A member of the RNA family "Plastid-rps12 3UTR RNA", 96 nucleotides long. The family's RNA type in Rfam is cis-regulatory element. Rfam's curators put it in the seed alignment. For this family Rfam cites "Retrograde signaling in plants: A critical review focusing on the GUN pathway and beyond" (Richter et al., Plant Commun, 2023). The family's consensus secondary structure was predicted with LocARNA. Plastid rpl20 is a non-coding RNA (ncRNA) recognised in plastids.
RNA sequence: GGUUUCCGUUGGUGCAAAUCCAAUCACCUCAAUUUAAGAUGAGAAUAAAUUCUCCAUUGGUAAAAAAUGGUUAUCCAUUAAGCGGAGAAAAUCCUA
Numbered sequence: 001g002g003u004u005u006c007c008g009u010u011g012g013u014g015c016a017a018a019u020c021c022a023a024u025c026a027c028c029u030c031a032a033u034u035u036a037a038g039a040u041g042a043g044a045a046u047a048a049a050u051u052c053u054c055c056a057u058u059g060g061u062a063a064a065a066a067a068u069g070g071u072u073a074u075c076c077a078u079u080a081a082g083c084g085g086a087g088a089a090a091a092u093c094c095u096a
Stems, first nucleotide, its partner, number of pairs: 009023004052087004056078002059075005